[Rfam]
RNA: Ribosomal protein L10 leader
RNA sequence: CAACCGAAUCACGAAACGCCGCAGACCGAAGGGGCCGCAAGGCUUAAACAUCCUUCCGAGGCAGAUCGUCGACCGCCGGGGUCGACCGGCGCUCGCGUGCCUUCCGUCCGGCUGCCUGUCUGCGGAAGGCUUUUUGCUUAAAGAA
Numbered sequence: 001c002a003a004c005c006g007a008a009u010c011a012c013g014a015a016a017c018g019c020c021g022c023a024g025a026c027c028g029a030a031g032g033g034g035c036c037g038c039a040a041g042g043c044u045u046a047a048a049c050a051u052c053c054u055u056c057c058g059a060g061g062c063a064g065a066u067c068g069u070c071g072a073c074c075g076c077c078g079g080g081g082u083c084g085a086c087c088g089g090c091g092c093u094c095g096c097g098u099g100c101c102u103u104c105c106g107u108c109c110g111g112c113u114g115c116c117u118g119u120c121u122g123c124g125g126a127a128g129g130c131u132u133u134u135u136g137c138u139u140a141a142a143g144a145a
Base pairs, nucleotide, nucleotide: 028056029055030054031053032052033051034043035042036041099130100129101128102127103126104125105124106123107122